A member of the RNA family "Mammalian CPEB3 ribozyme" from Crocodylus porosus, 80 nucleotides long. The mammalian CPEB3 ribozyme is a self cleaving RNA located in the second intron of the CPEB3 gene which belongs to a family of genes regulating messenger RNA polyadenylation. The source organism's lineage runs through Eukaryota, Metazoa, Vertebrata, Tetrapoda and Crocodylus. Pairs were carried over by alignment from the consensus structure, which is taken from published work.

RNA sequence: AGAGGUUGCAAGUUCAAGGCCAUAGCAAAAGUGUUCACAGAACAGCCCUGCUAAAUUCUAAUGAAUCUAUAAAUUCUGCU
Numbered sequence: 001a002g003a004g005g006u007u008g009c010a011a012g013u014u015c016a017a018g019g020c021c022a023u024a025g026c027a028a029a030a031g032u033g034u035u036c037a038c039a040g041a042a043c044a045g046c047c048c049u050g051c052u053a054a055a056u057u058c059u060a061a062u063g064a065a066u067c068u069a070u071a072a073a074u075u076c077u078g079c080u
Stems, first nucleotide, its partner, number of pairs: 018047003024080004029075002031043002052069002055066004
Dot-bracket structure: .................[[[...((((.((((.........)).]]]....((.((((....)))).))....)).))))